[Rfam]
RNA sequence: AUUCGUUCGUUUACGAUUAAUUAAGCUUUCCCGUCUAUGACUGAAAUGUCCUUCAUUGGACACCGAGUGGCUUCCUGUCCACUCUGUUUGACGCCUCCCUGUUAUCAACUUCAGGCCGCCGGAAACGGCGGCUCUUUUUUU
Numbered sequence: 001a002u003u004c005g006u007u008c009g010u011u012u013a014c015g016a017u018u019a020a021u022u023a024a025g026c027u028u029u030c031c032c033g034u035c036u037a038u039g040a041c042u043g044a045a046a047u048g049u050c051c052u053u054c055a056u057u058g059g060a061c062a063c064c065g066a067g068u069g070g071c072u073u074c075c076u077g078u079c080c081a082c083u084c085u086g087u088u089u090g091a092c093g094c095c096u097c098c099c100u101g102u103u104a105u106c107a108a109c110u111u112c113a114g115g116c117c118g119c120c121g122g123a124a125a126c127g128g129c130g131g132c133u134c135u136u137u138u139u140u141u
Stems, first nucleotide, its partner, number of pairs: 003044003007016002017039001022037002025034002048061004065084006090103004113135002115132007
Alphaproteobacterial sRNA BjrC1505: a 141-nucleotide RNA sequence from Nitrobacter sp. Nb-311A. The base pairs follow the family's consensus structure. A reference for the family is Madhugiri et al. (2012), "Small RNAs of the Bradyrhizobium/Rhodopseudomonas lineage and their analysis", RNA Biol.